[Rfam]
RNA sequence: ACAUAAGUAGGAUAAUCCUUAUCUGUCUUUUUUUUGGAAGGCAGAUUGGAACAUGAUGAUUGACGUUCCCAAGAUACAUGAUUAACCCCUCUGCGUAAUCAAGUUCGCAACACCCUGAUUGCUCCUAUCUUAU
Numbered sequence: 001a002c003a004u005a006a007g008u009a010g011g012a013u014a015a016u017c018c019u020u021a022u023c024u025g026u027c028u029u030u031u032u033u034u035u036g037g038a039a040g041g042c043a044g045a046u047u048g049g050a051a052c053a054u055g056a057u058g059a060u061u062g063a064c065g066u067u068c069c070c071a072a073g074a075u076a077c078a079u080g081a082u083u084a085a086c087c088c089c090u091c092u093g094c095g096u097a098a099u100c101a102a103g104u105u106c107g108c109a110a111c112a113c114c115c116u117g118a119u120u121g122c123u124c125c126u127a128u129c130u131u132a133u
Stems, first nucleotide, its partner, number of pairs: 023044003027041006073091002079084001095122007103114001
RNA: U8 small nucleolar RNA